RNA sequence: AAAUGUUAAAAGCAAACCUAGGGAAACCUAGUGUCGCAAAGCUAAAGGACCUUUAAUAUGGUAUCCAGUUGUCAUU
Numbered sequence: 001a002a003a004u005g006u007u008a009a010a011a012g013c014a015a016a017c018c019u020a021g022g023g024a025a026a027c028c029u030a031g032u033g034u035c036g037c038a039a040a041g042c043u044a045a046a047g048g049a050c051c052u053u054u055a056a057u058a059u060g061g062u063a064u065c066c067a068g069u070u071g072u073c074a075u076u
Stems, first nucleotide, its partner, number of pairs: 012037002018031005040070004047066002049062003
A member of the RNA family "c-di-GMP-I riboswitch aptamer" from Mariniplasma anaerobium, 76 nucleotides long. The match comes from Rfam's covariance-model search (50 bits). A reference for the family is Sudarsan et al. (2008), "Riboswitches in Eubacteria Sense the Second Messenger Cyclic Di-GMP", Science. The organism belongs to Mariniplasma, within Bacteria.